[Rfam]
RNA: mir-3473 microRNA precursor family
Organism: Nannospalax galili
Nucleotides: 079
Stems, first nucleotide, its partner, number of pairs: 002078023
Number, partner (000 for none) and nucleotide at each position: 001000a002078c003077c004076a005075c006074u007073g008072a009071g010070c011069c012068a013067u014066c015065u016064c017063u018062c019061u020060a021059g022058c023057c024056c025000u026000a027000u028000a029000a030000c031000u032000g033000u034000u035000u036000u037000u038000c039000u040000u041000a042000a043000g044000a045000c046000a047000g048000a049000u050000g051000c052000u053000c054000u055000g056024g057023g058022g059021c060020u061019a062018g063017g064016g065015a066014g067013a068012u069011g070010g071009c072008u073007c074006a075005g076004u077003g078002g079000u